Description:
Purine riboswitch aptamer: a 102-nucleotide RNA sequence from Clostridioides difficile. The sequence is in the family's curated seed alignment. Gene Ontology term of the family: purine nucleobase biosynthetic process. Lineage of the source: Bacteria > Bacillati > Peptostreptococcales > Peptostreptococcaceae > Clostridioides. Rfam's curators write: Riboswitches are metabolite binding domains within certain messenger RNAs that serve as precision sensors for their corresponding targets. The family's consensus secondary structure is taken from published work.
RNA sequence: UAUAUAAAAUAUAAACUCACUCGUAUAUGCUCAGAAAUAUGGUCUGAGAGUCUCUACCAAGAUACCGUAAAUAUCUUGACUAUGAGUGAAAUUAUUAUACCA
Numbered sequence: 001u002a003u004a005u006a007a008a009a010u011a012u013a014a015a016c017u018c019a020c021u022c023g024u025a026u027a028u029g030c031u032c033a034g035a036a037a038u039a040u041g042g043u044c045u046g047a048g049a050g051u052c053u054c055u056a057c058c059a060a061g062a063u064a065c066c067g068u069a070a071a072u073a074u075c076u077u078g079a080c081u082a083u084g085a086g087u088g089a090a091a092u093u094a095u096u097a098u099a100c101c102a
Base pairs, nucleotide, nucleotide: 018088019087020086021085022084023083024082025081030048031047032046033045034044035043058078059077060076061075062074063073064072